The family of this 180-nucleotide sequence from Pseudomonas taeanensis is "Pseudomonas sRNA P1".
The family's consensus secondary structure was predicted with RNAalifold.
A reference for the family is Livny et al. (2006), "Identification of 17 Pseudomonas aeruginosa sRNAs and prediction of sRNA-encoding genes in 10 diverse pathogens using the bioinformatic tool sRNAPredict2", Nucleic Acids Res.
About the family: This small RNA (sRNA) was computationally identified in the genome of the opportunistic pathogen Pseudomonas aeruginosa and its expression verified by northern blot analysis. There appears to be two related copies of P1 sRNA in the P.aeruginosa PA01 genome and both copies appear to be located upstream of predicted glutamine synthetase genes. This sRNA appears to be conserved amongst several Pseudomonas species.
RNA sequence: GCACCCGUUUUAUUGCUGUUAUGGGUUUGAAGCGAGCUUAGCCUUGUUCAUUUUUUUUCACAAUAGUCAUGUAAAAAAUUGAACACACUCUGCUGAGCACCGCGCCGGCCAAGGCCGAGACGCCAUAAGCGAUGCCCUGAAACGCCCUAUAAAUGGCCACAUUGCCCUUUUUAAGGGCGC
Numbered sequence: 001g002c003a004c005c006c007g008u009u010u011u012a013u014u015g016c017u018g019u020u021a022u023g024g025g026u027u028u029g030a031a032g033c034g035a036g037c038u039u040a041g042c043c044u045u046g047u048u049c050a051u052u053u054u055u056u057u058u059c060a061c062a063a064u065a066g067u068c069a070u071g072u073a074a075a076a077a078a079u080u081g082a083a084c085a086c087a088c089u090c091u092g093c094u095g096a097g098c099a100c101c102g103c104g105c106c107g108g109c110c111a112a113g114g115c116c117g118a119g120a121c122g123c124c125a126u127a128a129g130c131g132a133u134g135c136c137c138u139g140a141a142a143c144g145c146c147c148u149a150u151a152a153a154u155g156g157c158c159a160c161a162u163u164g165c166c167c168u169u170u171u172u173a174a175g176g177g178c179g180c
Base pairs, nucleotide, nucleotide: 023101024100027097028096034093036091041089044085046084047083048082052078053077054076055075056074057073059071163179164178165177167175